[Rfam]
RNA sequence: GUAGAGACUAGAGUCUCACCUUGACAUAAUUCAUUGUCUUGGUGUGCUAGAGUCCUCUUAGAGUGAAGACUGGUCCUAUUCACCGACUGGCUCUUUUGUAGGCCGGUCAACCACAUGGGCAGUUACAAAU
Numbered sequence: 001g002u003a004g005a006g007a008c009u010a011g012a013g014u015c016u017c018a019c020c021u022u023g024a025c026a027u028a029a030u031u032c033a034u035u036g037u038c039u040u041g042g043u044g045u046g047c048u049a050g051a052g053u054c055c056u057c058u059u060a061g062a063g064u065g066a067a068g069a070c071u072g073g074u075c076c077u078a079u080u081c082a083c084c085g086a087c088u089g090g091c092u093c094u095u096u097u098g099u100a101g102g103c104c105g106g107u108c109a110a111c112c113a114c115a116u117g118g119g120c121a122g123u124u125a126c127a128a129a130u
Stems, first nucleotide, its partner, number of pairs: 003058004007053003012048002015046001017044004023038004070122003074118002085108002088105005
About this RNA: The record is a 130-nucleotide sequence from Etheostoma spectabile, which matches "Small nucleolar RNA SNORA3/SNORA45 family" in Rfam. The family's RNA type in Rfam is H/ACA-box small nucleolar RNA. A reference for the family is Gu et al. (2005), "A novel experimental approach for systematic identification of box H/ACA snoRNAs from eukaryotes", Nucleic Acids Res. NCBI's taxonomy places the organism under Eukaryota, Euteleostomi, Acanthomorphata, Eupercaria, Oligocephalus. It scores 67 bits against the family's covariance model. About the family: The members of this family belong to the H/ACA class of snoRNAs which are thought to guide the sites of modification of uridines to pseudouridines.